[Rfam]
RNA sequence: GACAGUUCUCAGGGCGGGGUGAAAGUCCCCACCGGCGGUAAGGGAGUUUCUCCCAAGCCCGCGAGCGCCUGCCAGCGGCAGGGUCAGCAGAUCCGGUGCGACUCCGGAGCCGACGGUUAAAGUCCGGAUGGAAGAGAACGUGC
Numbered sequence: 001g002a003c004a005g006u007u008c009u010c011a012g013g014g015c016g017g018g019g020u021g022a023a024a025g026u027c028c029c030c031a032c033c034g035g036c037g038g039u040a041a042g043g044g045a046g047u048u049u050c051u052c053c054c055a056a057g058c059c060c061g062c063g064a065g066c067g068c069c070u071g072c073c074a075g076c077g078g079c080a081g082g083g084u085c086a087g088c089a090g091a092u093c094c095g096g097u098g099c100g101a102c103u104c105c106g107g108a109g110c111c112g113a114c115g116g117u118u119a120a121a122g123u124c125c126g127g128a129u130g131g132a133a134g135a136g137a138a139c140g141u142g143c
Stems, first nucleotide, its partner, number of pairs: 005139006017029003031123002033112002035062004057110002065088002092108005114126003

The record is a 143-nucleotide sequence from Pseudolabrys sp. Root1462, which matches "FMN riboswitch aptamer (RFN element)" in Rfam. The organism belongs to Pseudolabrys, within Bacteria. The match comes from Rfam's covariance-model search (116 bits).